[Rfam]
RNA sequence: GUGCGAUGAGGAUCACCUUACACACCUCCUAAUUUCUAUGAGGAAUACUAGAACGGAUAUCUGAGCAC
Numbered sequence: 001g002u003g004c005g006a007u008g009a010g011g012a013u014c015a016c017c018u019u020a021c022a023c024a025c026c027u028c029c030u031a032a033u034u035u036c037u038a039u040g041a042g043g044a045a046u047a048c049u050a051g052a053a054c055g056g057a058u059a060u061c062u063g064a065g066c067a068c
Stems, first nucleotide, its partner, number of pairs: 001068004
RNA: Caenorhabditis snoRNA ceN89
Organism: Caenorhabditis angaria